Shown here is an 86-nucleotide sequence from Clostridioides difficile, a member of the family "c-di-GMP-I riboswitch aptamer". The organism belongs to Clostridioides, within Bacteria. It scores 75 bits against the family's covariance model. Pairs were carried over by alignment from the consensus structure, which is taken from published work.
RNA sequence: AAUUAAAUGAGGCAAAACUAGGGAAACCUAGUCACGCAAAGCUAUAGGGGCUAAAGUUUAGUAAACCAUGCCAGCCAGUUGCCGAA
Numbered sequence: 001a002a003u004u005a006a007a008u009g010a011g012g013c014a015a016a017a018c019u020a021g022g023g024a025a026a027c028c029u030a031g032u033c034a035c036g037c038a039a040a041g042c043u044a045u046a047g048g049g050g051c052u053a054a055a056g057u058u059u060a061g062u063a064a065a066c067c068a069u070g071c072c073a074g075c076c077a078g079u080u081g082c083c084g085a086a
Stems, first nucleotide, its partner, number of pairs: 012037002017032006040080004047076002049072003056066004